[Rfam]
RNA sequence: UUGACCGAUACCGAUGGCUUGUCACCAUCCAUGACAUGAGGGGAUAACCUGAUUAACAGGCGGUCGUACAGAGUACAUCAACCGAACCCCUUGACCUCAACGUUGUUCCGCUCUGGUGCAAAGGUAUCGCUCA
Numbered sequence: 001u002u003g004a005c006c007g008a009u010a011c012c013g014a015u016g017g018c019u020u021g022u023c024a025c026c027a028u029c030c031a032u033g034a035c036a037u038g039a040g041g042g043g044a045u046a047a048c049c050u051g052a053u054u055a056a057c058a059g060g061c062g063g064u065c066g067u068a069c070a071g072a073g074u075a076c077a078u079c080a081a082c083c084g085a086a087c088c089c090c091u092u093g094a095c096c097u098c099a100a101c102g103u104u105g106u107u108c109c110g111c112u113c114u115g116g117u118g119c120a121a122a123g124g125u126a127u128c129g130c131u132c133a
Base pairs, nucleotide, nucleotide: 002133003132004131006129007128008127009126010125011124012123018038020036021035022034023033040090041089042088043087048060049059050058051057061084062083063082064081066076067075068074069073
Shown here is a 133-nucleotide sequence from Entomomonas asaccharolytica, a member of the family "EFASI RNA". Rfam classes the family as a small RNA. The organism belongs to Entomomonas, within Bacteria.